[Rfam]
RNA sequence: CCGGCUCCGGUUCACCCCGCGCGCGGGGACCCGGCGGCC
Dot-bracket structure: ..(((.((((....(((((....)))))..))))..)))
Numbered sequence: 001c002c003g004g005c006u007c008c009g010g011u012u013c014a015c016c017c018c019g020c021g022c023g024c025g026g027g028g029a030c031c032c033g034g035c036g037g038c039c
Stems, first nucleotide, its partner, number of pairs: 003039003007034004015028005
This 39-nucleotide sequence from Amycolatopsis alkalitolerans belongs to the Rfam family "L31-Actinobacteria ribosomal protein leader". The literature on the family includes a 2020 paper in BMC Microbiol by Eckert and Weinberg, "Discovery of 20 novel ribosomal leader candidates in bacteria and archaea". Its Rfam clan is "Ribosomal Protein L31 Leader clan". The family's consensus secondary structure is taken from published work. It scores 50 bits against the family's covariance model.